[Rfam]
RNA sequence: UUGAGGAGCAGGACUUAGCUGCCUUGUGAACAGAGUCAGCAUCAUAUUGUGUUCACAGUGGCUAAGUUCCGCUCCCCUU
Numbered sequence: 001u002u003g004a005g006g007a008g009c010a011g012g013a014c015u016u017a018g019c020u021g022c023c024u025u026g027u028g029a030a031c032a033g034a035g036u037c038a039g040c041a042u043c044a045u046a047u048u049g050u051g052u053u054c055a056c057a058g059u060g061g062c063u064a065a066g067u068u069c070c071g072c073u074c075c076c077c078u079u
Stems, first nucleotide, its partner, number of pairs: 011069010026056007
The record is a 79-nucleotide RNA from Monodelphis domestica, which matches "mir-27 microRNA precursor family" in Rfam. Rfam's curators put it in the seed alignment. Taxonomically the source falls in Monodelphis (Eukaryota, Chordata, Amniota, Metatheria). The base pairs follow the family's consensus structure, which was predicted with RNAalifold.